[Rfam]
RNA sequence: UAAUGUAAAAGGCAAACUUAUUGAAAGGUAAGGACGCAAAGUUACGAGUCUAAGGUCUCUAGACUAUGAUCGUCGGACUGCCAGA
Number, nucleotide and partner (000 for none) at each position: 001u000002a000003a000004u000005g000006u000007a000008a000009a000010a000011g000012g037013c036014a000015a000016a000017c032018u031019u030020a029021u028022u027023g000024a000025a000026a000027g022028g021029u020030a019031a018032g017033g000034a000035c000036g013037c012038a000039a000040a079041g078042u077043u076044a000045c075046g074047a073048g070049u069050c068051u000052a000053a000054g000055g064056u063057c062058u000059c000060u000061a000062g057063a056064c055065u000066a000067u000068g050069a049070u048071c000072g000073u047074c046075g045076g043077a042078c041079u040080g000081c000082c000083a000084g000085a000
Shown here is an 85-nucleotide RNA from Ornithinibacillus caprae, a member of the family "c-di-GMP-I riboswitch aptamer". A search with the family's covariance model found it, with a score of 81 bits.